[Rfam]
Source information:
Shown here is a 113-nucleotide sequence from bacterium D16-54, a member of the family "drum RNA". Firmicutes, Bacteroidetes (1 example), Proteobacteria (2 examples), Spirochaetes (2 examples). The family's RNA type in Rfam is small RNA.
RNA sequence: AAGUGUUGAAGUAAGGGACUGCGCCGGCAGGCAUUGUCUUAUGGAACUUUCAGGAAGGGUUGUGCAGUGAAACCUUAAACCAACGUAGACUAAGAAGCUAAAAAAUACACCAG
Number, nucleotide and partner (000 for none) at each position: 001a049002a048003g047004u046005g000006u000007u000008g000009a000010a000011g042012u041013a040014a039015g038016g037017g000018a035019c000020u033021g032022c031023g000024c000025c000026g081027g080028c000029a000030g000031g022032c021033a020034u000035u018036g000037u016038c015039u014040u013041a012042u011043g000044g000045a000046a004047c003048u002049u001050u000051c000052a000053g000054g000055a000056a000057g000058g000059g000060u000061u000062g000063u000064g108065c000066a106067g000068u000069g000070a000071a000072a000073c000074c000075u000076u000077a000078a000079a000080c027081c026082a000083a000084c000085g000086u000087a000088g099089a000090c097091u096092a000093a000094g000095a000096a091097g090098c000099u088100a000101a000102a000103a000104a000105a000106u066107a000108c064109a000110c000111c000112a000113g000